[Rfam]
RNA: Mason-Pfizer monkey virus packaging signal
RNA sequence: UGGCGCCCAAUGUCAGGGCUGGACACUGAAGAUCCAGUGAGGGAAGAUGAAGUCCCAAAAGAACGUGUUCAACAAGGAUUUUUCACUCUGGACUCGCCACGGGAGCCUGCCUCUGCUAAAACCAGAAGUAAGUACAGACGUCUGAUUAUGGGACAAGAAUUAAGCCAGCAUGAACUUUAUGUUAAACAAUUACAAGAAGCCUUAAAGACGUGAGGAGUAAAGGUUAAAAUAGAGGAUCUAUUAAGAUUCUUUGAAUUCAUUAAGGAAACGUGUCCUU
Numbered sequence: 001u002g003g004c005g006c007c008c009a010a011u012g013u014c015a016g017g018g019c020u021g022g023a024c025a026c027u028g029a030a031g032a033u034c035c036a037g038u039g040a041g042g043g044a045a046g047a048u049g050a051a052g053u054c055c056c057a058a059a060a061g062a063a064c065g066u067g068u069u070c071a072a073c074a075a076g077g078a079u080u081u082u083u084c085a086c087u088c089u090g091g092a093c094u095c096g097c098c099a100c101g102g103g104a105g106c107c108u109g110c111c112u113c114u115g116c117u118a119a120a121a122c123c124a125g126a127a128g129u130a131a132g133u134a135c136a137g138a139c140g141u142c143u144g145a146u147u148a149u150g151g152g153a154c155a156a157g158a159a160u161u162a163a164g165c166c167a168g169c170a171u172g173a174a175c176u177u178u179a180u181g182u183u184a185a186a187c188a189a190u191u192a193c194a195a196g197a198a199g200c201c202u203u204a205a206a207g208a209c210g211u212g213a214g215g216a217g218u219a220a221a222g223g224u225u226a227a228a229a230u231a232g233a234g235g236a237u238c239u240a241u242u243a244a245g246a247u248u249c250u251u252u253g254a255a256u257u258c259a260u261u262a263a264g265g266a267a268a269c270g271u272g273u274c275c276u277u
Stems, first nucleotide, its partner, number of pairs: 006031001012026002036053001037048002085129003088125002094120001101111002137154001141152004161204003164200002211253008221239005262277005